Shown here is a 453-nucleotide RNA sequence from Acidipila rosea, a member of the family "Bacterial RNase P class A". Taxonomically the source falls in Acidipila (Bacteria, Terriglobia, Terriglobales, Acidobacteriaceae).
[Rfam]
RNA sequence: GCAGGCAGCCGGACGGCCGCUGCCGGCGUCGCGCAGGCGUUCGCCGGGAGAGGAAAGUCCGAACUCCACAGGGCGGUGUGCCGGAUAACGUCCGGGAUUCAGGCUUCAAGGCCUGAAGACGGCUAGUGCCACAGAGAAGAUACCGCCCGCGUCCGCAAGGACGCAGGUAAGGGUGAAAAGGUGCGGUAAGAGCGCACCGCCCCGGCGGCAACGCACGGGGGCAGGGUAAACCCCACACGGAGCAAGACCAAAUAGGGAGGAAUGCGCAGCCAGGUCCAGACAGCUGCGCAGCGUGCCGGCCCGGCGCGCCAACGUGGAUCCUCCAGACGGAUGGCCAACAGGCCAUCGCGUGGAGCGGAAACCUCCGGGUAGGUCGCUUGAGCGGCGCAGUAAUGCGUCGCCUAGAGGAAUGGCCGUCCUCGACAAAAUUCGGCUUACAGGCUGCCUGCAACA
Numbered sequence: 001g002c003a004g005g006c007a008g009c010c011g012g013a014c015g016g017c018c019g020c021u022g023c024c025g026g027c028g029u030c031g032c033g034c035a036g037g038c039g040u041u042c043g044c045c046g047g048g049a050g051a052g053g054a055a056a057g058u059c060c061g062a063a064c065u066c067c068a069c070a071g072g073g074c075g076g077u078g079u080g081c082c083g084g085a086u087a088a089c090g091u092c093c094g095g096g097a098u099u100c101a102g103g104c105u106u107c108a109a110g111g112c113c114u115g116a117a118g119a120c121g122g123c124u125a126g127u128g129c130c131a132c133a134g135a136g137a138a139g140a141u142a143c144c145g146c147c148c149g150c151g152u153c154c155g156c157a158a159g160g161a162c163g164c165a166g167g168u169a170a171g172g173g174u175g176a177a178a179a180g181g182u183g184c185g186g187u188a189a190g191a192g193c194g195c196a197c198c199g200c201c202c203c204g205g206c207g208g209c210a211a212c213g214c215a216c217g218g219g220g221g222c223a224g225g226g227u228a229a230a231c232c233c234c235a236c237a238c239g240g241a242g243c244a245a246g247a248c249c250a251a252a253u254a255g256g257g258a259g260g261a262a263u264g265c266g267c268a269g270c271c272a273g274g275u276c277c278a279g280a281c282a283g284c285u286g287c288g289c290a291g292c293g294u295g296c297c298g299g300c301c302c303g304g305c306g307c308g309c310c311a312a313c314g315u316g317g318a319u320c321c322u323c324c325a326g327a328c329g330g331a332u333g334g335c336c337a338a339c340a341g342g343c344c345a346u347c348g349c350g351u352g353g354a355g356c357g358g359a360a361a362c363c364u365c366c367g368g369g370u371a372g373g374u375c376g377c378u379u380g381a382g383c384g385g386c387g388c389a390g391u392a393a394u395g396c397g398u399c400g401c402c403u404a405g406a407g408g409a410a411u412g413g414c415c416g417u418c419c420u421c422g423a424c425a426a427a428a429u430u431c432g433g434c435u436u437a438c439a440g441g442c443u444g445c446c447u448g449c450a451a452c453a
Base pairs, nucleotide, nucleotide: 001449002448003447004446005445006444007443008442009441010440011438012418013417014416015415016414017413018412020050021049023047024046025045026044027043028042055436056435057434059433060432061431062430063429064242065241066240067239076238077237078236079235080234081095082094083093084092085091096120098117099116100115101114102113103112104111105110121233122232126231127230128227129226130225143172144171145168146167147166149164150163151162152161153160154159180198181197182196183195184194185193199222200220201219202218203217204216205214206213207212246375247374248373249372256366257365258364259363260362346358347357348356349355382401383400384399385398386397387396388395389394